[Rfam]
Nucleotides: 093
Stems, first nucleotide, its partner, number of pairs: 001042008014034006046065008
Number, partner (000 for none) and nucleotide at each position: 001042g002041g003040g004039a005038c006037a007036g008035g009000g010000g011000g012000g013000u014034c015033c016032c017031c018030g019029u020000g021000c022000g023000c024000c025000a026000a027000c028000g029019g030018c031017g032016g033015g034014g035008c036007c037006u038005g039004u040003u041002c042001c043000g044000g045000u046065g047064g048063u049062u050061g051060c052059g053058c054000g055000a056000a057000g058053g059052c060051g061050u062049g063048g064047c065046c066000a067000g068000u069000g070000g071000u072000u073000g074000u075000c076000g077000c078000u079000c080000g081000g082000g083000g084000g085000u086000g087000a088000u089000c090000g091000c092000c093000g
This 93-nucleotide RNA sequence from Streptomyces luteoverticillatus belongs to the Rfam family "che1 RNA". The base pairs follow the family's consensus structure, which is taken from published work.